Rfam assigns this 82-nucleotide RNA from Variovorax sp. OV329 to the family "SucA RNA motif". Rfam classes the family as a cis-regulatory element. The match comes from Rfam's covariance-model search (82 bits). Lineage of the source: Bacteria > Betaproteobacteria > Burkholderiales > Comamonadaceae > Variovorax. A reference for the family is Weinberg et al. (2007), "Identification of 22 candidate structured RNAs in bacteria using the CMfinder comparative genomics pipeline", Nucleic Acids Res.
RNA sequence: UCGCAUCCGCCAACCGGUUCAGCCGUGUCGCGGAAGGUUUUCCAGCCAACUCGUGCUUCCUCAAGGGAAGCGAAGGUCAGCG
Numbered sequence: 001u002c003g004c005a006u007c008c009g010c011c012a013a014c015c016g017g018u019u020c021a022g023c024c025g026u027g028u029c030g031c032g033g034a035a036g037g038u039u040u041u042c043c044a045g046c047c048a049a050c051u052c053g054u055g056c057u058u059c060c061u062c063a064a065g066g067g068a069a070g071c072g073a074a075g076g077u078c079a080g081c082g
Stems, first nucleotide, its partner, number of pairs: 002082003006034005015025004036047004049077003055071007